Source information: This 431-nucleotide RNA from Nitratireductor mangrovi belongs to the Rfam family "Bacterial RNase P class A". The family is grouped with related families in Rfam's "RNaseP clan". By type it is a ribozyme.
[Rfam]
RNA sequence: CCAGUCGGCCGGGCGGCCGCGCUUGCAAACGCCGAAAGGCUGCAAGCGAGGAAAGUCCGGGCUCCAUGGAAACACGGUGCCGGUAAAUGACCGGCGGGGGCGACCCCAGGGAAAGCGCCACAGAAAGCAAACCGCCCCGCCUGCAAAUCGGCCGCCGGCAUGCCGGCCGCUUUGCCGGCGGGGCAAGGGUGAAAGGGUGGGGUAAGAGCCCACCGCGCUUCUGGCAACAGAAGUGGCACGGCAAGCCCCACCGGGAGCAAGACCGAAUAGGGAUGGCGUGGAAGGCAACUUCCGGGCGGUUUCCGGCCCAGUCAUCCGGGUUGGUUGCUUGAGGCGGACAGCAAUGUCCGUCCCAGAGGAAUGGCCGCCACGUUCCGGCGCCUCAGGGUGCCGGGGCCAUACAGAACCCGGCUUACAGGCCGACUGGUAUU
Number, nucleotide and partner (000 for none) at each position: 001c427002c426003a425004g424005u423006c422007g421008g420009c419010c418011g416012g369013g368014c367015g366016g365017c364018c363019g000020c048021g047022c046023u045024u044025g043026c042027a041028a000029a000030c000031g000032c000033c000034g000035a000036a000037a000038g000039g000040c000041u027042g026043c025044a024045a023046g022047c021048g020049a000050g000051g000052a000053a414054a413055g412056u000057c411058c410059g409060g408061g407062c257063u256064c255065c254066a000067u000068g000069g000070a000071a302072a301073c000074a000075c253076g252077g251078u250079g249080c094081c093082g092083g091084u090085a000086a000087a000088u000089g000090a084091c083092c082093g081094g080095c109096g107097g106098g105099g104100g000101c000102g000103a000104c099105c098106c097107c096108a000109g095110g248111g247112a000113a000114a000115g246116c245117g242118c241119c240120a000121c000122a000123g000124a000125a000126a000127g000128c000129a000130a000131a000132c188133c187134g184135c183136c182137c181138c180139g179140c178141c177142u000143g000144c000145a000146a000147a000148u000149c000150g000151g000152c000153c000154g000155c000156c000157g000158g000159c000160a000161u000162g000163c000164c000165g000166g000167c000168c000169g000170c000171u000172u000173u000174g000175c000176c000177g141178g140179c139180g138181g137182g136183g135184c134185a000186a000187g133188g132189g000190u000191g000192a000193a000194a000195g000196g214197g213198u212199g211200g210201g209202g000203u000204a000205a000206g000207a000208g000209c201210c200211c199212a198213c197214c196215g237216c235217g234218c233219u232220u231221c230222u229223g228224g000225c000226a000227a000228c223229a222230g221231a220232a219233g218234u217235g216236g000237c215238a000239c000240g119241g118242c117243a000244a000245g116246c115247c111248c110249c079250a078251c077252c076253g075254g065255g064256a063257g062258c000259a000260a000261g326262a325263c324264c323265g000266a000267a000268u000269a000270g000271g317272g316273a315274u314275g313276g312277c000278g000279u000280g000281g000282a000283a000284g000285g000286c000287a000288a000289c000290u000291u000292c000293c000294g000295g309296g308297c000298g000299g000300u000301u072302u071303c000304c000305g000306g000307c000308c296309c295310a000311g000312u276313c275314a274315u273316c272317c271318g000319g000320g000321u000322u000323g264324g263325u262326u261327g000328c000329u000330u000331g000332a000333g352334g351335c350336g349337g348338a347339c346340a345341g000342c000343a000344a000345u340346g339347u338348c337349c336350g335351u334352c333353c000354c000355a000356g000357a000358g000359g000360a000361a000362u000363g018364g017365c016366c015367g014368c013369c012370a000371c000372g000373u000374u000375c000376c000377g000378g000379c000380g000381c000382c000383u000384c000385a000386g000387g000388g000389u000390g000391c000392c000393g000394g000395g000396g000397c000398c000399a000400u000401a000402c000403a000404g000405a000406a000407c061408c060409c059410g058411g057412c055413u054414u053415a000416c011417a000418g010419g009420c008421c007422g006423a005424c004425u003426g002427g001428u000429a000430u000431u000